[Rfam]
RNA sequence: UUCCAUCGCUAAGUCAAGGCUUCUUCCUGCGACGUAUGUCGUGCUUUUCUCCAUGGAAGUCUGUCUGUUACAGCUUUGGUAUAUUAACACUGUCCCGCGCCGAACUUCUUUCUGAAGCUAGGUUGAUCGAUCCUCGUCUUGAGGGUCUAUCGCAAGGGACAAAUGUGUCUUGUUUUUGAGUUGAGUUCUGCUUCUGCCUUUCUUGGUGGCUUUAUGGCAGAACUCUUAGUAACAUUCCACACAUUU
Number, nucleotide and partner (000 for none) at each position: 001u000002u000003c079004c078005a077006u000007c000008g000009c000010u000011a000012a000013g000014u000015c000016a000017a066018g065019g064020c063021u000022u000023c059024u058025u057026c056027c055028u000029g042030c041031g040032a039033c038034g000035u000036a000037u000038g033039u032040c031041g030042u029043g000044c000045u000046u000047u000048u000049c000050u000051c000052c000053a000054u000055g027056g026057a025058a024059g023060u000061c000062u000063g020064u019065c018066u017067g000068u000069u000070a000071c000072a000073g000074c000075u000076u000077u005078g004079g003080u000081a000082u000083a000084u000085u000086a000087a000088c000089a000090c000091u161092g160093u159094c158095c157096c000097g000098c000099g123100c122101c121102g000103a119104a000105c117106u116107u115108c114109u000110u000111u000112c000113u000114g108115a107116a106117g105118c000119u103120a000121g101122g100123u099124u000125g151126a150127u000128c000129g000130a146131u145132c144133c143134u142135c141136g140137u000138c000139u000140u136141g135142a134143g133144g132145g131146u130147c000148u000149a000150u126151c125152g000153c000154a000155a000156g000157g095158g094159a093160c092161a091162a000163a000164u000165g240166u239167g238168u000169c000170u000171u234172g233173u232174u000175u000176u000177u000178g000179a000180g000181u000182u000183g225184a224185g223186u222187u000188c000189u219190g218191c217192u216193u000194c209195u208196g207197c206198c205199u000200u000201u000202c000203u000204u000205g198206g197207u196208g195209g194210c000211u000212u000213u000214a000215u000216g192217g191218c190219a189220g000221a000222a186223c185224u184225c183226u000227u000228a000229g000230u000231a000232a173233c172234a171235u000236u000237c000238c167239a166240c165241a000242c000243a000244u000245u000246u000